Notes
The record is a 108-nucleotide RNA sequence from Macaca mulatta, which matches "Y RNA" in Rfam. The family's RNA type in Rfam is non-coding RNA gene. The literature on the family includes a 2013 paper in Physiol Genomics by Dhahbi et al., "5'-YRNA fragments derived by processing of transcripts from specific YRNA genes and pseudogenes are abundant in human serum and plasma". The organism belongs to Macaca, within Eukaryota. The match comes from Rfam's covariance-model search (67 bits).
RNA sequence: GGCUGGUCUGAAGGUAGUGAGUUACCUCAAUUCAUUGUCCAGUCAGUUACAGAUCGAACUUGUUCUACUCUUUCCUUCCUUUUCACUACUGCACUUGACUAGUCUAAA
Numbered sequence: 001g002g003c004u005g006g007u008c009u010g011a012a013g014g015u016a017g018u019g020a021g022u023u024a025c026c027u028c029a030a031u032u033c034a035u036u037g038u039c040c041a042g043u044c045a046g047u048u049a050c051a052g053a054u055c056g057a058a059c060u061u062g063u064u065c066u067a068c069u070c071u072u073u074c075c076u077u078c079c080u081u082u083u084c085a086c087u088a089c090u091g092c093a094c095u096u097g098a099c100u101a102g103u104c105u106a107a108a
Stems, first nucleotide, its partner, number of pairs: 001104008010096002014092002016087006042069001045066002